[Rfam]
RNA sequence: UGCUCAAUGAUUAACCCAUGCACCAUGGCAAUACACGCUAUUCUGAAUCAUAUUAAGAUGCCAUAAACAUUAUGAGAGCA
Numbered sequence: 001u002g003c004u005c006a007a008u009g010a011u012u013a014a015c016c017c018a019u020g021c022a023c024c025a026u027g028g029c030a031a032u033a034c035a036c037g038c039u040a041u042u043c044u045g046a047a048u049c050a051u052a053u054u055a056a057g058a059u060g061c062c063a064u065a066a067a068c069a070u071u072a073u074g075a076g077a078g079c080a
Stems, first nucleotide, its partner, number of pairs: 001080005
Dot-bracket structure: (((((......................................................................)))))
RNA: Small nucleolar RNA U54